Record summary
Rfam assigns this 400-nucleotide RNA from Mesonia algae to the family "transfer-messenger RNA". NCBI's taxonomy places the organism under Bacteria, Bacteroidota, Flavobacteriia, Flavobacteriales, Mesonia. From the family's description: Bacterial tmRNA, also known as 10Sa RNA or SsrA, is named for its dual tRNA and mRNA-like properties. Its role is to liberate the mRNA from a stalled ribosome. To accomplish this part of the tmRNA is used as a reading frame that ends in a translation stop signal. Clan: tRNA clan. It scores 140 bits against the family's covariance model.
[Rfam]
RNA sequence: GGGGUCGAUUUGGUUUUGACAGUGAGUCUAAUUGAAUGGUAAGCACGUCGAGCGCUGGGAUACAGCUCGUAAAUCUCAUAUUUCACACUUUUUUAAACGGCGAGAAUAACUACGCCUUGGCUGCGUAAUCCGAAUUAUAGUAGGAUACCUUAGUCCCUGUUAGACAGGGAGCCAAGAUGUCUCGUGGCAGCCUUGAUUUACGGCGACCACAAUUGAGGCACCGAUAAAGUAACUCUAGAAACUGUAGGGUCUUGAUACAGUUUUGAAAUUUAAUUGAGAAUAAGUAUGUAGUUGGUGGCUUUCGGCCGGCUGCAUAUCGAAAAACAAACGAGAGAUAAGCGUGUAGAAAGCUAUUGAAUUGCUUGUUUGGACGGGAGUUCGAGUCUCCCCGACUCCACAA
Numbered sequence: 001g002g003g004g005u006c007g008a009u010u011u012g013g014u015u016u017u018g019a020c021a022g023u024g025a026g027u028c029u030a031a032u033u034g035a036a037u038g039g040u041a042a043g044c045a046c047g048u049c050g051a052g053c054g055c056u057g058g059g060a061u062a063c064a065g066c067u068c069g070u071a072a073a074u075c076u077c078a079u080a081u082u083u084c085a086c087a088c089u090u091u092u093u094u095a096a097a098c099g100g101c102g103a104g105a106a107u108a109a110c111u112a113c114g115c116c117u118u119g120g121c122u123g124c125g126u127a128a129u130c131c132g133a134a135u136u137a138u139a140g141u142a143g144g145a146u147a148c149c150u151u152a153g154u155c156c157c158u159g160u161u162a163g164a165c166a167g168g169g170a171g172c173c174a175a176g177a178u179g180u181c182u183c184g185u186g187g188c189a190g191c192c193u194u195g196a197u198u199u200a201c202g203g204c205g206a207c208c209a210c211a212a213u214u215g216a217g218g219c220a221c222c223g224a225u226a227a228a229g230u231a232a233c234u235c236u237a238g239a240a241a242c243u244g245u246a247g248g249g250u251c252u253u254g255a256u257a258c259a260g261u262u263u264u265g266a267a268a269u270u271u272a273a274u275u276g277a278g279a280a281u282a283a284g285u286a287u288g289u290a291g292u293u294g295g296u297g298g299c300u301u302u303c304g305g306c307c308g309g310c311u312g313c314a315u316a317u318c319g320a321a322a323a324a325c326a327a328a329c330g331a332g333a334g335a336u337a338a339g340c341g342u343g344u345a346g347a348a349a350g351c352u353a354u355u356g357a358a359u360u361g362c363u364u365g366u367u368u369g370g371a372c373g374g375g376a377g378u379u380c381g382a383g384u385c386u387c388c389c390c391g392a393c394u395c396c397a398c399a400a
Stems, first nucleotide, its partner, number of pairs: 001396007020369003025364002028361001032358002035355006044343005049069005056085007150175002153172001154170007178220006184210004190204003195233001197231001199229001238264009248281001250279004284318001285316007294307003299334002302331003373389005